RNA sequence: GCCUGCAUUCGUAAGUGAUCACGGGCUGCCCGUGUCCUGGUCAUUGGUAGUGCAGGCAGAGGAAAUGCGGGAAAGGUUGCUGUGUUUGGAGGGUCCACAUCUUCACCCUCCUGUCCCAGGAGCUUUCCUACA
Numbered sequence: 001g002c003c004u005g006c007a008u009u010c011g012u013a014a015g016u017g018a019u020c021a022c023g024g025g026c027u028g029c030c031c032g033u034g035u036c037c038u039g040g041u042c043a044u045u046g047g048u049a050g051u052g053c054a055g056g057c058a059g060a061g062g063a064a065a066u067g068c069g070g071g072a073a074a075g076g077u078u079g080c081u082g083u084g085u086u087u088g089g090a091g092g093g094u095c096c097a098c099a100u101c102u103u104c105a106c107c108c109u110c111c112u113g114u115c116c117c118a119g120g121a122g123c124u125u126u127c128c129u130a131c132a
Base pairs, nucleotide, nucleotide: 001057002056003055004054005053006052007051008050009049014045015044016043017042018041019040020039021038023037024036025035026034067129069128070127071126072125073124075123084116087113088112089110090109091108092107093106

Shown here is a 132-nucleotide RNA, a member of the family "Small nucleolar RNA SNORA71".
Rfam's curators write: The members of this family belong to the H/ACA class of snoRNAs which bind a number of proteins (including dyskerin, Gar1p and Nop10p) to form snoRNP complexes. This class of snoRNAs are thought to guide the sites of modification of uridines to pseudouridines by forming direct base pairing interactions with substrate RNAs. This family includes U71 (SNORA71), ACA39 (SNORA39) and ACA60 (SNORA60). U71 and ACA60 are predicted to guide the pseudouridylation of U406 and U1004 in 18S rRNA respectively. There is currently no target RNA identified for ACA39.
The family's RNA type in Rfam is H/ACA-box small nucleolar RNA.
Its family is annotated with RNA processing and nucleolus in the Gene Ontology.
The family has 40 seed sequences and 1,805 matches in Rfam 15.1.